A member of the RNA family "Potassium channel RNA editing signal" from Cyclopterus lumpus, 114 nucleotides long. Taxonomically the source falls in Cyclopterus (Eukaryota, Bilateria, Neoteleostei, Cyclopterinae).

[Rfam]
RNA sequence: GUCGGCUACGGGGACAUGUACCCGGAGACGGUCGGGGGCAAGCUGGUGGGCUCCAUGUGCGCCAUCGCCGGCGUGCUCACCAUCUCGCUGCCGGUGCCCGUCAUCGUGUCCAAC
Numbered sequence: 001g002u003c004g005g006c007u008a009c010g011g012g013g014a015c016a017u018g019u020a021c022c023c024g025g026a027g028a029c030g031g032u033c034g035g036g037g038g039c040a041a042g043c044u045g046g047u048g049g050g051c052u053c054c055a056u057g058u059g060c061g062c063c064a065u066c067g068c069c070g071g072c073g074u075g076c077u078c079a080c081c082a083u084c085u086c087g088c089u090g091c092c093g094g095u096g097c098c099c100g101u102c103a104u105c106g107u108g109u110c111c112a113a114c
Base pairs, nucleotide, nucleotide: 001114002113004111005110007108008107009106010105011104013102014101015100018097019096020095021094037077038076039075040074049063050062051061